This 100-nucleotide RNA sequence from Clostridium aciditolerans belongs to the Rfam family "Glycine riboswitch aptamer". Taxonomically the source falls in Clostridium (Bacteria, Bacillati, Bacillota, Clostridiaceae).

[Rfam]
RNA sequence: AUGAUUAUAGCGUGAGAUAACAUUUUGUUAACCGAAGGAGCAAUGAUAUAGCACCACAACUGUAUCAGAAACUUUCAGGUAAAAGUAGCGUUAUAUGACG
Dot-bracket structure: .....((((((((.....((((...)))).(((((..(((...((((((((........))))))))....))))).))).......)))))))).....
Numbered sequence: 001a002u003g004a005u006u007a008u009a010g011c012g013u014g015a016g017a018u019a020a021c022a023u024u025u026u027g028u029u030a031a032c033c034g035a036a037g038g039a040g041c042a043a044u045g046a047u048a049u050a051g052c053a054c055c056a057c058a059a060c061u062g063u064a065u066c067a068g069a070a071a072c073u074u075u076c077a078g079g080u081a082a083a084a085g086u087a088g089c090g091u092u093a094u095a096u097g098a099c100g
Stems, first nucleotide, its partner, number of pairs: 006095008019029004031080003034076002038074003044067008